The record is a 46-nucleotide sequence from Schaalia sp. 19OD2882, which matches "L31-Actinobacteria ribosomal protein leader" in Rfam. A search with the family's covariance model found it, with a score of 35 bits. The organism belongs to Schaalia, within Bacteria. On this family, see Eckert and Weinberg, BMC Microbiol 2020: "Discovery of 20 novel ribosomal leader candidates in bacteria and archaea". By type it is a cis-regulatory leader.
[Rfam]
RNA sequence: CUGGUUCCGGUUCACCUCGCGGCAGGAGUCGCCAGGACCCGGCAUC
Numbered sequence: 001c002u003g004g005u006u007c008c009g010g011u012u013c014a015c016c017u018c019g020c021g022g023c024a025g026g027a028g029u030c031g032c033c034a035g036g037a038c039c040c041g042g043c044a045u046c
Stems, first nucleotide, its partner, number of pairs: 003046003007042004015036003019032005